[Rfam]
RNA sequence: GGCUUCGUAGCUCAGUUGGUAGAGCGUCAGAUUCCAAUUGAGAUUGGUUCUCUUUCGAGGUUUAGUUCUCGGAAUUGGAAUUCAUCUGAAUGUCGCGUGUUCAAGUCACGUCGAGGUCA
Numbered sequence: 001g002g003c004u005u006c007g008u009a010g011c012u013c014a015g016u017u018g019g020u021a022g023a024g025c026g027u028c029a030g031a032u033u034c035c036a037a038u039u040g041a042g043a044u045u046g047g048u049u050c051u052c053u054u055u056c057g058a059g060g061u062u063u064a065g066u067u068c069u070c071g072g073a074a075u076u077g078g079a080a081u082u083c084a085u086c087u088g089a090a091u092g093u094c095g096c097g098u099g100u101u102c103a104a105g106u107c108a109c110g111u112c113g114a115g116g117u118c119a
Stems, first nucleotide, its partner, number of pairs: 001118007010025004027089005095111005

Background
This 119-nucleotide sequence from Penicillium chermesinum belongs to the Rfam family "tRNA". Pairs were carried over by alignment from the consensus structure, which is taken from published work. It is annotated as a transfer RNA. The source organism's lineage runs through Eukaryota, Opisthokonta, saccharomyceta, Pezizomycotina and Penicillium. Rfam links the family to the GO term triplet codon-amino acid adaptor activity.